[Rfam]
RNA sequence: GGGGACCUCCGGGGCCCUACAACUGCGCGGCGGAAUGACCCGUCGCGCCACGCAAACGGAAGACAGGUA
Numbered sequence: 001g002g003g004g005a006c007c008u009c010c011g012g013g014g015c016c017c018u019a020c021a022a023c024u025g026c027g028c029g030g031c032g033g034a035a036u037g038a039c040c041c042g043u044c045g046c047g048c049c050a051c052g053c054a055a056a057c058g059g060a061a062g063a064c065a066g067g068u069a
Base pairs, nucleotide, nucleotide: 001018002017003016004015006014007013008012027046028045029044030043031042032041033040
Description:
The record is a 69-nucleotide RNA from Jannaschia seosinensis, which matches "L2-Alphaproteobacteria ribosomal protein leader" in Rfam. Rfam classes the family as a cis-regulatory leader. The base pairs follow the family's consensus structure, which is taken from published work. The match comes from Rfam's covariance-model search (60 bits).